[Rfam]
RNA sequence: GAAAAGGCCCUUUUCAGGGCCACAAAACAUUCACUUAUAUAAUGAUU
Numbered sequence: 001g002a003a004a005a006g007g008c009c010c011u012u013u014u015c016a017g018g019g020c021c022a023c024a025a026a027a028c029a030u031u032c033a034c035u036u037a038u039a040u041a042a043u044g045a046u047u
Stems, first nucleotide, its partner, number of pairs: 006021006

This 47-nucleotide RNA sequence from Eumeta japonica belongs to the Rfam family "Histone 3' UTR stem-loop". NCBI's taxonomy places the organism under Eukaryota, Panarthropoda, Arthropoda, Amphiesmenoptera, Eumeta. It is annotated as a cis-regulatory element. A search with the family's covariance model found it, with a score of 39 bits.